[Rfam]
The family of this 120-nucleotide RNA from Sorghum bicolor is "U5 spliceosomal RNA". The family has 180 seed sequences and 28,527 matches in Rfam 15.1. It scores 92 bits against the family's covariance model. Rfam links the family to the GO terms spliceosomal tri-snRNP complex assembly and U5 snRNP.

RNA sequence: AGCUGCGUGGUGAGCACAAAGCGAACUAUUCUUUCGCCUUUUACUAAAGAAUACCGUGUGCACGCCACAAAUAGCAGCAUACGCUAAUUUUUGGAUGGUGUUCUCUCGUUUUGAGAGGGC
Numbered sequence: 001a002g003c004u005g006c007g008u009g010g011u012g013a014g015c016a017c018a019a020a021g022c023g024a025a026c027u028a029u030u031c032u033u034u035c036g037c038c039u040u041u042u043a044c045u046a047a048a049g050a051a052u053a054c055c056g057u058g059u060g061c062a063c064g065c066c067a068c069a070a071a072u073a074g075c076a077g078c079a080u081a082c083g084c085u086a087a088u089u090u091u092u093g094g095a096u097g098g099u100g101u102u103c104u105c106u107c108g109u110u111u112u113g114a115g116a117g118g119g120c
Stems, first nucleotide, its partner, number of pairs: 003077004008067005014061005027053008101119006